Background: raiA-hairpin RNA: a 49-nucleotide sequence from Streptomyces morookaense.
RNA sequence: CGCCUAGUCGGUGGCUCCGGGCCGGCCCCGGGGUCUGAUGCAAGAGGGA
Numbered sequence: 001c002g003c004c005u006a007g008u009c010g011g012u013g014g015c016u017c018c019g020g021g022c023c024g025g026c027c028c029c030g031g032g033g034u035c036u037g038a039u040g041c042a043a044g045a046g047g048g049a
Base pairs, nucleotide, nucleotide: 013035014034015033016032017031018030019029020028
The family's consensus secondary structure is taken from published work.
The family's RNA type in Rfam is small RNA.